[Rfam]
RNA sequence: ACACUGAAGUUGAGAGUUGGAUGAAGACAAACCGACUGAUCAUGACAACUCCAGCAGAUGGUCAGCUUGUUUUCCUCCAACAUCUCAUCUUCAGCAG
Numbered sequence: 001a002c003a004c005u006g007a008a009g010u011u012g013a014g015a016g017u018u019g020g021a022u023g024a025a026g027a028c029a030a031a032c033c034g035a036c037u038g039a040u041c042a043u044g045a046c047a048a049c050u051c052c053a054g055c056a057g058a059u060g061g062u063c064a065g066c067u068u069g070u071u072u073u074c075c076u077c078c079a080a081c082a083u084c085u086c087a088u089c090u091u092c093a094g095c096a097g
Base pairs, nucleotide, nucleotide: 004094005093006092007091008090011087012086013085014084016081017080018079019078020077021076023074024073025072026071027070028069029068030067032065

The record is a 97-nucleotide RNA from Oryza brachyantha, which matches "MIR2275 microRNA precursor family" in Rfam. The match comes from Rfam's covariance-model search (68 bits). Taxonomically the source falls in Oryza (Eukaryota, Viridiplantae, Tracheophyta, Spermatophyta).